Rfam assigns this 102-nucleotide sequence from Esox lucius to the family "mir-454 microRNA precursor family". On this family, see Glazov et al., Genome Res 2008: "A microRNA catalog of the developing chicken embryo identified by a deep sequencing approach". The organism belongs to Esox, within Eukaryota. The base pairs follow the family's consensus structure, which was predicted with RNAalifold. Its family is annotated with RISC complex and miRNA-mediated post-transcriptional gene silencing in the Gene Ontology.
[Rfam]
Nucleotides: 102
Stems, first nucleotide, its partner, number of pairs: 020088010030075009041065005
Number, partner (000 for none) and nucleotide at each position: 001000c002000a003000g004000a005000u006000u007000g008000a009000u010000g011000c012000c013000a014000a015000g016000u017000c018000c019000u020088g021087g022086a023085a024084c025083c026082c027081u028080a029079u030075c031074a032073g033072u034071a035070u036069u037068g038067u039000c040000u041065c042064u043063g044062c045061u046000g047000u048000c049000c050000a051000c052000u053000u054000u055000g056000u057000u058000g059000a060000a061045a062044g063043u064042a065041g066000u067038g068037c069036a070035a071034u072033a073032u074031u075030g076000c077000u078000u079029a080028u081027a082026g083025g084024g085023u086022u087021u088020c089000a090000g091000u092000g093000u094000u095000u096000g097000g098000a099000u100000u101000a102000a